[Rfam]
Rfam assigns this 87-nucleotide RNA from Chionoecetes opilio to the family "mir-310 microRNA precursor family". Its Rfam clan is "mir-92 microRNA precursor clan".
RNA sequence: AUGCUUCAAGGCGGGUGCAUGGGUUAAUAUUACCUUCUCUUUGCAUACAUGGAGGUAAUAUUAACCCAUUCACCCGCCUUGAAGCAU
Numbered sequence: 001a002u003g004c005u006u007c008a009a010g011g012c013g014g015g016u017g018c019a020u021g022g023g024u025u026a027a028u029a030u031u032a033c034c035u036u037c038u039c040u041u042u043g044c045a046u047a048c049a050u051g052g053a054g055g056u057a058a059u060a061u062u063a064a065c066c067c068a069u070u071c072a073c074c075c076g077c078c079u080u081g082a083a084g085c086a087u
Stems, first nucleotide, its partner, number of pairs: 001087007010078002013075002016072002020068002023065001025063013